Rfam assigns this 55-nucleotide RNA sequence from Streptosporangium roseum to the family "L17-Actino-Proteobacteria ribosomal protein leader". Pairs were carried over by alignment from the consensus structure, which is taken from published work. NCBI's taxonomy places the organism under Bacteria, Actinomycetes, Streptosporangiaceae, Streptosporangium, Streptosporangium roseum. The literature on the family includes a 2020 paper in BMC Microbiol by Eckert and Weinberg, "Discovery of 20 novel ribosomal leader candidates in bacteria and archaea". It is one of the family's seed sequences.
[Rfam]
RNA sequence: ACGGGGAUCGAGCGACUCCCCGGCCUGACCCCGGUACCUGAUACGGCCGGGGCGG
Numbered sequence: 001a002c003g004g005g006g007a008u009c010g011a012g013c014g015a016c017u018c019c020c021c022g023g024c025c026u027g028a029c030c031c032c033g034g035u036a037c038c039u040g041a042u043a044c045g046g047c048c049g050g051g052g053c054g055g
Stems, first nucleotide, its partner, number of pairs: 002022006008015001025055003029052007